[Rfam]
RNA sequence: CAUGUUCAGCUUUGGGGAAGGUGAGAACCUUCGACAAGGUUCGAGUCGAGCAGCACGAGACAACGUGCGCAGCACGGCCCGAAGGGUGAGGCGCGAAGCGACGAAUAAUCCUUCCCCCGCCACCA
Numbered sequence: 001c002a003u004g005u006u007c008a009g010c011u012u013u014g015g016g017g018a019a020g021g022u023g024a025g026a027a028c029c030u031u032c033g034a035c036a037a038g039g040u041u042c043g044a045g046u047c048g049a050g051c052a053g054c055a056c057g058a059g060a061c062a063a064c065g066u067g068c069g070c071a072g073c074a075c076g077g078c079c080c081g082a083a084g085g086g087u088g089a090g091g092c093g094c095g096a097a098g099c100g101a102c103g104a105a106u107a108a109u110c111c112u113u114c115c116c117c118c119g120c121c122a123c124c125a
Stems, first nucleotide, its partner, number of pairs: 015116007022108001032088002035085001040083004047057002064076005

The family of this 125-nucleotide RNA sequence from Gibbsiella quercinecans is "RtT RNA". For this family Rfam cites "A novel RNA product of the tyrT operon of Escherichia coli" (Bosl and Kersten, Nucleic Acids Res, 1991). Lineage of the source: Bacteria > Pseudomonadota > Gammaproteobacteria > Yersiniaceae > Gibbsiella. From the family's description: This family represents a bacterial cis-regulatory element known as RtT RNA. The exact function of RtT is unknown although it is thought that it may be involved in changing the cellular response in relation to amino acid starvation.